[Rfam]
RNA: Small nucleolar RNA snoR145
RNA sequence: CAGCGAAGGUCCCAGCAGAGAGGGUUGGAUCUCCAGGUAGUUGAGACCUCUCUAACACUAGAUCAAUCCUUCGCAUAUGGAUCAUGCCGAUUCGUACGAUGCCUGAGCGAUUUCUAUGUUUUCUUGGCGUCUUUAACCUCGGCUAUAUUUCU
Dot-bracket structure: ..(((((((.(.(....).)...(......(((.((....)))))....).................)))))))...........(((((.......((.(((.(.(..............).).))).)).......))))).........
Numbered sequence: 001c002a003g004c005g006a007a008g009g010u011c012c013c014a015g016c017a018g019a020g021a022g023g024g025u026u027g028g029a030u031c032u033c034c035a036g037g038u039a040g041u042u043g044a045g046a047c048c049u050c051u052c053u054a055a056c057a058c059u060a061g062a063u064c065a066a067u068c069c070u071u072c073g074c075a076u077a078u079g080g081a082u083c084a085u086g087c088c089g090a091u092u093c094g095u096a097c098g099a100u101g102c103c104u105g106a107g108c109g110a111u112u113u114c115u116a117u118g119u120u121u122u123c124u125u126g127g128c129g130u131c132u133u134u135a136a137c138c139u140c141g142g143c144u145a146u147a148u149u150u151c152u
Stems, first nucleotide, its partner, number of pairs: 003074007011020001013018001024050001031045003035042002086143005098131002101128003105124001107122001